The family of this 136-nucleotide sequence from Exiguobacterium chiriqhucha is "PyrR binding site". Rfam classes the family as a cis-regulatory element. A search with the family's covariance model found it, with a score of 54 bits. Its family is annotated with pyrimidine nucleobase transport and pyrimidine nucleobase biosynthetic process in the Gene Ontology. The family has 41 seed sequences and 1,498 matches in Rfam 15.1.

RNA sequence: AACACCUUUAAACCCAGUCCAGAGAGGCUGUGAAAGGAUUGUGGCCGCGGCCACGACACGUCGAUUAUUUGAGGCAGAGGUCUGCCCUCACAUAUGAAGACUUCCUUUUCCAGCCGGAUGAGGAAGUCUUCUUUUU
Number, nucleotide and partner (000 for none) at each position: 001a000002a000003c000004a000005c037006c036007u035008u034009u033010a000011a000012a000013c000014c000015c030016a029017g028018u027019c026020c000021a000022g000023a000024g000025a000026g019027g018028c017029u016030g015031u000032g000033a009034a008035a007036g006037g005038a000039u000040u000041g000042u000043g000044g000045c000046c000047g000048c000049g000050g000051c000052c000053a000054c000055g000056a000057c000058a000059c000060g000061u000062c000063g000064a000065u000066u094067a093068u092069u000070u090071g089072a088073g086074g085075c084076a083077g082078a000079g000080g000081u000082c077083u076084g075085c074086c073087c000088u072089c071090a070091c000092a068093u067094a066095u000096g131097a130098a129099g128100a127101c126102u125103u124104c123105c122106u121107u120108u000109u118110c117111c116112a000113g000114c000115c000116g111117g110118a109119u000120g107121a106122g105123g104124a103125a102126g101127u100128c099129u098130u097131c096132u000133u000134u000135u000136u000